A member of the RNA family "Histone 3' UTR stem-loop" from Mizuhopecten yessoensis, 46 nucleotides long. Rfam's curators write: The mRNAs of metazoan histone genes lack a poly-A tail. 3' end processing occurs at a site between a highly conserved stem-loop (modelled by this family) and a purine rich region around 20 nts downstream (the histone downstream element, or HDE). On this family, see Williams and Marzluff, Nucleic Acids Res 1995: "The sequence of the stem and flanking sequences at the 3' end of histone mRNA are critical determinants for the binding of the stem-loop binding protein".

RNA sequence: AAAAAGGCCCUUUUCAGGGCCAACAACUUCCCCCAAAAAGACCAAU
Numbered sequence: 001a002a003a004a005a006g007g008c009c010c011u012u013u014u015c016a017g018g019g020c021c022a023a024c025a026a027c028u029u030c031c032c033c034c035a036a037a038a039a040g041a042c043c044a045a046u
Stems, first nucleotide, its partner, number of pairs: 006021006